RNA sequence: GGCGUCAUGGUCUAGAGGUAUGAUUCUUGCUUUGGGAUUACUGAAUAAGUGCUCAAACCUGCAAGAGGUCCCGGGUUCAAUCCCCGGUGACGCCC
Numbered sequence: 001g002g003c004g005u006c007a008u009g010g011u012c013u014a015g016a017g018g019u020a021u022g023a024u025u026c027u028u029g030c031u032u033u034g035g036g037a038u039u040a041c042u043g044a045a046u047a048a049g050u051g052c053u054c055a056a057a058c059c060u061g062c063a064a065g066a067g068g069u070c071c072c073g074g075g076u077u078c079a080a081u082c083c084c085c086g087g088u089g090a091c092g093c094c095c
Base pairs, nucleotide, nucleotide: 001094002093003092004091005090006089007088010024011023012022026065027064028063029062030061071087072086073085074084075083

The family of this 95-nucleotide RNA from Sodiomyces alkalinus is "tRNA". The source organism's lineage runs through Eukaryota, Opisthokonta, Fungi, Sodiomyces and Sodiomyces alkalinus. It scores 50 bits against the family's covariance model. The family's consensus secondary structure is taken from published work. By type it is a transfer RNA.